[Rfam]
RNA sequence: AUACUUACCUGGACGGGGUCAAUGGGUGAUCAAUAAGGCUCAUGUCCUAGGUAAGAGACUUCCAUUGCACCUAGGAAGGGCUCUUGCCUAAGGUCUCCUCAAAGUAGGAGAGCCUACGUUAUAAUUUGUGGCAGUGGGGGCUUGCGUCCGCGCGGCCCCUGU
Dot-bracket structure: ...........(((((((.((.(((((..........))))))).)))(((...(((.(((((..........)).))).)))...))).((((((.((......)).))).))).))))..............(((((...((((....))))..))))).
RNA: U1 spliceosomal RNA